Nucleotides: 102
Base pairs, nucleotide, nucleotide: 018088019087020086021085022084023083024082025081029049031047032046033045034044035043058078059077060076061075062074063073064072
Number, partner (000 for none) and nucleotide at each position: 001000a002000u003000u004000a005000a006000a007000u008000u009000c010000a011000u012000a013000u014000g015000u016000u017000u018088c019087a020086c021085u022084c023083a024082u025081a026000u027000a028000a029049u030000c031047g032046c033045g034044g035043g036000g037000a038000u039000a040000u041000g042000g043035c044034c045033u046032g047031c048000a049029a050000g051000u052000u053000u054000c055000u056000a057000c058078c059077g060076g061075a062074u063073u064072g065000c066000c067000g068000u069000u070000a071000a072064c073063a074062a075061u076060c077059u078058g079000a080000c081025u082024a083023u084022g085021a086020g087019u088018g089000g090000g091000u092000a093000a094000u095000g096000c097000a098000a099000u100000u101000g102000g